The family of this 65-nucleotide sequence from Sarcophilus harrisii is "Small nucleolar RNA SNORD73".
RNA sequence: AAUGAAUGAUGACCACAGUUUUGGUCCCAAAUGAUGUUUCAUGCUUAUACUCAUUUACUGACAUU
Numbered sequence: 001a002a003u004g005a006a007u008g009a010u011g012a013c014c015a016c017a018g019u020u021u022u023g024g025u026c027c028c029a030a031a032u033g034a035u036g037u038u039u040c041a042u043g044c045u046u047a048u049a050c051u052c053a054u055u056u057a058c059u060g061a062c063a064u065u
Stems, first nucleotide, its partner, number of pairs: 001065004

The family's RNA type in Rfam is C/D-box small nucleolar RNA. NCBI's taxonomy places the organism under Eukaryota, Opisthokonta, Craniata, Euteleostomi, Sarcophilus. The literature on the family includes a 1998 paper in Gene by Rebane et al., "A novel snoRNA (U73) is encoded within the introns of the human and mouse ribosomal protein S3a genes". Rfam 15.1 lists 769 matches to the family in 586 species.